Record summary
Rfam assigns this 58-nucleotide RNA sequence from Prochlorococcus marinus to the family "Glutamine-II riboswitch aptamer". Rfam's curators put it in the seed alignment.
[Rfam]
RNA sequence: UUUCGUUCACCCAUAAUAUUGGGCGCAGUUCGAGUCAUACCAGGGAACGGGGGAUGAC
Numbered sequence: 001u002u003u004c005g006u007u008c009a010c011c012c013a014u015a016a017u018a019u020u021g022g023g024c025g026c027a028g029u030u031c032g033a034g035u036c037a038u039a040c041c042a043g044g045g046a047a048c049g050g051g052g053g054a055u056g057a058c
Base pairs, nucleotide, nucleotide: 004049005048006047007046008045010023011022012021013020034058035057036056037055038054040052041051

The base pairs follow the family's consensus structure, which is taken from published work.
The literature on the family includes a 2019 paper in Nucleic Acids Res by Huang et al., "Structure and ligand binding of the glutamine-II riboswitch".